[Rfam]
RNA sequence: UCACCGUCGGGCUCUGAUUCGCUUGGUGCAGGUCGGGAACUAAUUGGCGUUGAUUUUACGUAUUAGUAUGUGAGCAGGGAUUGGUUCCCGCCUUGCAUCAACUGAAUCGGAACCCCGAUGGUGAAA
Numbered sequence: 001u002c003a004c005c006g007u008c009g010g011g012c013u014c015u016g017a018u019u020c021g022c023u024u025g026g027u028g029c030a031g032g033u034c035g036g037g038a039a040c041u042a043a044u045u046g047g048c049g050u051u052g053a054u055u056u057u058a059c060g061u062a063u064u065a066g067u068a069u070g071u072g073a074g075c076a077g078g079g080a081u082u083g084g085u086u087c088c089c090g091c092c093u094u095g096c097a098u099c100a101a102c103u104g105a106a107u108c109g110g111a112a113c114c115c116c117g118a119u120g121g122u123g124a125a126a
Base pairs, nucleotide, nucleotide: 013111014110017107018106019105020104023101024100025099026098027097028096029095030094031093032092034090035089036088037087038086040084041083
Description: Rfam assigns this 126-nucleotide sequence from Microthlaspi erraticum to the family "MIR168 microRNA precursor family". It scores 98 bits against the family's covariance model. Rfam links the family to the GO terms miRNA-mediated post-transcriptional gene silencing and RISC complex. Taxonomically the source falls in Microthlaspi (Eukaryota, Streptophyta, Tracheophyta, Mesangiospermae). The literature on the family includes a 2002 paper in Genes Dev by Reinhart et al., "MicroRNAs in plants".